[Rfam]
RNA: mir-10 microRNA precursor family
Organism: Dictyocaulus viviparus
RNA sequence: GCCCAUCAACCCGUAGAUCCGAACUUGUGUUCAGUUCUGUGAUACACAAGCUCGGCUACAGGUGGAUGGACU
Number, nucleotide and partner (000 for none) at each position: 001g000002c000003c069004c068005a067006u066007c065008a000009a000010c062011c061012c000013g000014u000015a057016g056017a000018u000019c055020c054021g053022a052023a000024c050025u049026u048027g047028u046029g045030u000031u000032c000033a000034g000035u000036u000037c000038u000039g000040u000041g000042a000043u000044a000045c029046a028047c027048a026049a025050g024051c000052u022053c021054g020055g019056c016057u015058a000059c000060a000061g011062g010063u000064g000065g007066a006067u005068g004069g003070a000071c000072u000